Shown here is a 265-nucleotide RNA sequence from Pontiella sulfatireligans, a member of the family "Bacterial large signal recognition particle RNA". By type it is a non-coding RNA gene. Its Rfam clan is "SRP clan". The signal recognition particle (SRP) is a universally conserved ribonucleoprotein involved in the co-translational targeting of proteins to membranes.

[Rfam]
RNA sequence: CUGUGCUAGAUGGGCGGUUAGCGGUCGCCUGUAGCCUGCAAUCCGCUGCAGCAGGGUUGAAUCCCCCUACGAGGCAGAAGGACGGGCGGCAUUCCUGGCGGAGCGUGUUGAAGCAAUGGUUUUUGGAUGACGGGAACGGGUUGAACCCCGUCAGGGUCGGAAGGCAGCAGCGGUAAGCUUUGUUUUCCCGGGUGUCCGGAAGUCCGGAGCGGAGCGUGAUCCCAGGGUUUUGCUGUCCAGCCCGAUGUCGGAUGGGGGUGCACAG
Number, nucleotide and partner (000 for none) at each position: 001c265002u264003g263004u262005g261006c260007u000008a000009g058010a057011u056012g030013g029014g028015c027016g026017g025018u024019u023020a000021g000022c000023g019024g018025u017026c016027g015028c014029c013030u012031g000032u000033a000034g000035c055036c054037u053038g052039c051040a000041a000042u000043c000044c000045g000046c000047u000048g000049c000050a000051g039052c038053a037054g036055g035056g011057u010058u009059g000060a000061a000062u000063c000064c258065c257066c256067c255068u254069a253070c000071g000072a000073g249074g248075c247076a246077g000078a000079a000080g243081g242082a000083c240084g000085g238086g237087c000088g000089g000090c000091a230092u000093u227094c226095c225096u224097g223098g222099c000100g000101g221102a220103g000104c216105g215106u214107g000108u000109u000110g000111a000112a000113g210114c209115a000116a000117u206118g205119g204120u000121u201122u200123u199124u198125g197126g196127a000128u192129g000130a000131c190132g189133g188134g187135a186136a183137c182138g181139g180140g178141u000142u177143g000144a000145a000146c000147c000148c173149c172150g171151u170152c000153a000154g000155g000156g165157u164158c163159g000160g000161a000162a000163g158164g157165c156166a000167g000168c000169a000170g151171c150172g149173g148174u000175a000176a000177g142178c140179u000180u139181u138182g137183u136184u000185u000186u135187c134188c133189c132190g131191g000192g128193u000194g000195u000196c126197c125198g124199g123200a122201a121202g000203u000204c119205c118206g117207g000208a000209g114210c113211g000212g000213a000214g106215c105216g104217u000218g000219a000220u102221c101222c098223c097224a096225g095226g094227g093228u000229u000230u091231u000232g000233c000234u000235g000236u000237c086238c085239a000240g083241c000242c081243c080244g000245a000246u076247g075248u074249c073250g000251g000252a000253u069254g068255g067256g066257g065258g064259u000260g006261c005262a004263c003264a002265g001